[Rfam]
RNA sequence: AUUAUUAACCGAGGUCGGGCACCUCAAAAAAUAAA
Numbered sequence: 001a002u003u004a005u006u007a008a009c010c011g012a013g014g015u016c017g018g019g020c021a022c023c024u025c026a027a028a029a030a031a032u033a034a035a
Stems, first nucleotide, its partner, number of pairs: 002034005011025005
RNA: S16-Flavobacteria ribosomal protein leader